RNA sequence: AUACUUACCUGGCAGGGGAGAUACCAUGAUCAUGAAGGUGGUUCUCCCAGGGCGAGGCUCAGCCAUUGCACUCCGGUUGUGCUGACCCCUGCGAUUUCCCCAAAUGCGGGAAACUCGACUGCAUAAUUUCUGGUAGUGGGGGACUGCGUUCGCGCUUUCCCCUG
Numbered sequence: 001a002u003a004c005u006u007a008c009c010u011g012g013c014a015g016g017g018g019a020g021a022u023a024c025c026a027u028g029a030u031c032a033u034g035a036a037g038g039u040g041g042u043u044c045u046c047c048c049a050g051g052g053c054g055a056g057g058c059u060c061a062g063c064c065a066u067u068g069c070a071c072u073c074c075g076g077u078u079g080u081g082c083u084g085a086c087c088c089c090u091g092c093g094a095u096u097u098c099c100c101c102a103a104a105u106g107c108g109g110g111a112a113a114c115u116c117g118a119c120u121g122c123a124u125a126a127u128u129u130c131u132g133g134u135a136g137u138g139g140g141g142g143a144c145u146g147c148g149u150u151c152g153c154g155c156u157u158u159c160c161c162c163u164g
Stems, first nucleotide, its partner, number of pairs: 012122004016048006023042005049090004054086001056083003060079005092117003095113001096111002099109002138163006146155003
RNA: U1 spliceosomal RNA